[Rfam]
RNA: MIR2629 microRNA precursor family
RNA sequence: UACCAAAGUUUUUCUCGGCAGUUACUGCAGCCGGUUUCAUAAUUCGGCAGUUAACUGCCGAGGGGCAU
Numbered sequence: 001u002a003c004c005a006a007a008g009u010u011u012u013u014c015u016c017g018g019c020a021g022u023u024a025c026u027g028c029a030g031c032c033g034g035u036u037u038c039a040u041a042a043u044u045c046g047g048c049a050g051u052u053a054a055c056u057g058c059c060g061a062g063g064g065g066c067a068u
Stems, first nucleotide, its partner, number of pairs: 012064002015061009024051005